This 146-nucleotide RNA from Aspergillus parasiticus belongs to the Rfam family "A. fumigatus sRNA Afu_254".
Rfam classes the family as a small RNA.
The base pairs follow the family's consensus structure, which was predicted with WAR.

RNA sequence: CAUCAAAGCCUUCAAUCCAAGUUACAAAACCACUUCGAGAAACCUCUCCAAACUUUCCAACUCCGUCAAAAUGUCUCCCUGCUCUUGCAACUGCUGCAGCGGUAACUGCGCUAGCUGCUCCUGCUCCUCCUGCAGCGUAAGUAGCC
Numbered sequence: 001c002a003u004c005a006a007a008g009c010c011u012u013c014a015a016u017c018c019a020a021g022u023u024a025c026a027a028a029a030c031c032a033c034u035u036c037g038a039g040a041a042a043c044c045u046c047u048c049c050a051a052a053c054u055u056u057c058c059a060a061c062u063c064c065g066u067c068a069a070a071a072u073g074u075c076u077c078c079c080u081g082c083u084c085u086u087g088c089a090a091c092u093g094c095u096g097c098a099g100c101g102g103u104a105a106c107u108g109c110g111c112u113a114g115c116u117g118c119u120c121c122u123g124c125u126c127c128u129c130c131u132g133c134a135g136c137g138u139a140a141g142u143a144g145c146c
Stems, first nucleotide, its partner, number of pairs: 080104004087097003108133003117124002